[Rfam]
Source information: The family of this 77-nucleotide sequence from Trichoplusia ni is "let-7 microRNA precursor family". About the family: This family represents the microRNAs (miRNA) let-7 and mir-98. let-7 was identified from a study of developmental timing in C. elegans, and was later shown to be part of a much larger class of non-coding RNAs termed miRNAs. The family's consensus secondary structure was predicted with RNAalifold. The organism belongs to Trichoplusia, within Eukaryota. The family has 64 seed sequences and 8,694 matches in Rfam 15.1. On this family, see Rougvie, Nat Rev Genet 2001: "Control of developmental timing in animals".

RNA sequence: ACUGGGUGAGGUAGUAGGUUGUAUAGUACUGUAUUACAACAUUUGGGUGACACUGUACGUCCUACUAACUUUCCUGG
Number, nucleotide and partner (000 for none) at each position: 001a000002c076003u000004g074005g073006g072007u000008g071009a070010g069011g000012u067013a066014g065015u064016a063017g062018g061019u000020u059021g058022u057023a056024u055025a054026g053027u052028a000029c000030u038031g037032u036033a000034u000035u000036a032037c031038a030039a000040c000041a048042u047043u000044u000045g000046g000047g042048u041049g000050a000051c000052a027053c026054u025055g024056u023057a022058c021059g020060u000061c018062c017063u016064a015065c014066u013067a012068a000069c010070u009071u008072u006073c005074c004075u000076g002077g000